[Rfam]
RNA sequence: AAUUAGUUAUACAACUGACGGAAGUGGAAUAGACCACAUGGAGUAUAAUGGGAAAGAGUCGACCGUCUGGGCAACAGUC
Numbered sequence: 001a002a003u004u005a006g007u008u009a010u011a012c013a014a015c016u017g018a019c020g021g022a023a024g025u026g027g028a029a030u031a032g033a034c035c036a037c038a039u040g041g042a043g044u045a046u047a048a049u050g051g052g053a054a055a056g057a058g059u060c061g062a063c064c065g066u067c068u069g070g071g072c073a074a075c076a077g078u079c
Stems, first nucleotide, its partner, number of pairs: 003052002006049007015040001017067005024037004058072003
Dot-bracket structure: ..((.(((((((..(.[[[[[..((((......))))..)..))))))).)).....(((..]]]]]..))).......
Rfam assigns this 79-nucleotide sequence from Massilimicrobiota sp. An134 to the family "ZMP/ZTP riboswitch aptamer (pfl RNA motif)". The base pairs follow the family's consensus structure, which is taken from published work. The match comes from Rfam's covariance-model search (54 bits).